A member of the RNA family "Fluoride riboswitch aptamer (crcB RNA motif)" from Thermoanaerobaculum aquaticum, 65 nucleotides long.
RNA sequence: ACUCUCGCUGGCGAUGGAGUCCGCCGUUAACCGCCCACCCUUGGGCUGAUUACCCCUACCCCACA
Numbered sequence: 001a002c003u004c005u006c007g008c009u010g011g012c013g014a015u016g017g018a019g020u021c022c023g024c025c026g027u028u029a030a031c032c033g034c035c036c037a038c039c040c041u042u043g044g045g046c047u048g049a050u051u052a053c054c055c056c057u058a059c060c061c062c063a064c065a
Stems, first nucleotide, its partner, number of pairs: 010025004016056002019053002033046004
About this RNA
Gene Ontology terms of the family: response to fluoride and positive regulation of gene expression. A search with the family's covariance model found it, with a score of 49 bits.